This 190-nucleotide sequence from Halopseudomonas salegens belongs to the Rfam family "Pseudomonas sRNA P27". The source organism's lineage runs through Bacteria, Pseudomonadota, Gammaproteobacteria, Pseudomonadaceae and Halopseudomonas. The match comes from Rfam's covariance-model search (119 bits). A reference for the family is Livny et al. (2006), "Identification of 17 Pseudomonas aeruginosa sRNAs and prediction of sRNA-encoding genes in 10 diverse pathogens using the bioinformatic tool sRNAPredict2", Nucleic Acids Res.
RNA sequence: CGGGUUUCACUCCUGGAUUUACCAUUGACCACCCUUGCGGAUGGCAUGUUUUGGUGUCUGAUCCAGCCUGUACUGAAUCGGGAGCACCAUCUGCGUAGGCUGCUGGUUUAAGGCUUGCGCCGCCUACGGUCUUGGACAGCCCCCGCAUAACAGGGACCCCAAUCGGUUUGGCGCACCCAAGGGUGCGCCG
Numbered sequence: 001c002g003g004g005u006u007u008c009a010c011u012c013c014u015g016g017a018u019u020u021a022c023c024a025u026u027g028a029c030c031a032c033c034c035u036u037g038c039g040g041a042u043g044g045c046a047u048g049u050u051u052u053g054g055u056g057u058c059u060g061a062u063c064c065a066g067c068c069u070g071u072a073c074u075g076a077a078u079c080g081g082g083a084g085c086a087c088c089a090u091c092u093g094c095g096u097a098g099g100c101u102g103c104u105g106g107u108u109u110a111a112g113g114c115u116u117g118c119g120c121c122g123c124c125u126a127c128g129g130u131c132u133u134g135g136a137c138a139g140c141c142c143c144c145g146c147a148u149a150a151c152a153g154g155g156a157c158c159c160c161a162a163u164c165g166g167u168u169u170g171g172c173g174c175a176c177c178c179a180a181g182g183g184u185g186c187g188c189c190g
Stems, first nucleotide, its partner, number of pairs: 002159006011150001014147001023048002029044003033040002052089006058081005064075003093146003098141004106137010170189006